[Rfam]
Overview
This 60-nucleotide sequence from Calothrix sp. NIES-4101 belongs to the Rfam family "Nitrogen stress-induced RNA 1". The base pairs follow the family's consensus structure.
RNA sequence: UAGUAGAUGCACCCUGAUUCAAAUUUAAACCCCAGUAGAUGAUCUAUUGGGGUUUUUAUU
Numbered sequence: 001u002a003g004u005a006g007a008u009g010c011a012c013c014c015u016g017a018u019u020c021a022a023a024u025u026u027a028a029a030c031c032c033c034a035g036u037a038g039a040u041g042a043u044c045u046a047u048u049g050g051g052g053u054u055u056u057u058a059u060u
Base pairs, nucleotide, nucleotide: 003012004011029053030052031051032050033049034048035047036046037045038044039043